Shown here is a 54-nucleotide sequence from Coregonus sp. 'balchen', a member of the family "UnaL2 LINE 3' element".
[Rfam]
RNA sequence: ACUCACUACUACUGUAAGUCGCUCUGGAUAAGAGCGUCUGCUAAAUGACAUAAA
Numbered sequence: 001a002c003u004c005a006c007u008a009c010u011a012c013u014g015u016a017a018g019u020c021g022c023u024c025u026g027g028a029u030a031a032g033a034g035c036g037u038c039u040g041c042u043a044a045a046u047g048a049c050a051u052a053a054a
Stems, first nucleotide, its partner, number of pairs: 013043001014041003020036006
Its family is annotated with transposition, RNA-mediated in the Gene Ontology. The family's consensus secondary structure is taken from published work. A reference for the family is Baba et al. (2004), "Solution structure of an RNA stem-loop derived from the 3' conserved region of eel LINE UnaL2", RNA.